Rfam assigns this 57-nucleotide RNA from Astragalus mongholicus to the family "Plastid-rps18 3UTR RNA". From the family's description: Plastid rps18 is a non-coding RNA (ncRNA) present in plastids. NCBI's taxonomy places the organism under Eukaryota, Spermatophyta, eudicotyledons, rosids, Astragalus. Pairs were carried over by alignment from the consensus structure, which was predicted with LocARNA. Rfam classes the family as a cis-regulatory element.

[Rfam]
RNA sequence: UGCAACUAUUUUACGAUUAAGAAGUAAUUGCCUCUUGUACAUAUUAGACAUUAAUUG
Numbered sequence: 001u002g003c004a005a006c007u008a009u010u011u012u013a014c015g016a017u018u019a020a021g022a023a024g025u026a027a028u029u030g031c032c033u034c035u036u037g038u039a040c041a042u043a044u045u046a047g048a049c050a051u052u053a054a055u056u057g
Stems, first nucleotide, its partner, number of pairs: 018037005024031002